The family of this 54-nucleotide RNA is "Glutamine riboswitch aptamer (glnA leader)".
[Rfam]
RNA sequence: UGCGUUGAACCUUUUGUAGGUCGCAAGUAAGCCAGAGGGCUGAAGCAACGGGAA
Numbered sequence: 001u002g003c004g005u006u007g008a009a010c011c012u013u014u015u016g017u018a019g020g021u022c023g024c025a026a027g028u029a030a031g032c033c034a035g036a037g038g039g040c041u042g043a044a045g046c047a048a049c050g051g052g053a054a
Base pairs, nucleotide, nucleotide: 003050004049005048006047007046009021010020011019012018024051030041031040032039
Dot-bracket structure: ..(((((.((((.....))))..[.....(((......)))....)))))]...
The sequence is in the family's curated seed alignment.
The literature on the family includes a 2011 paper in RNA Biol by Ames and Breaker, "Bacterial aptamers that selectively bind glutamine".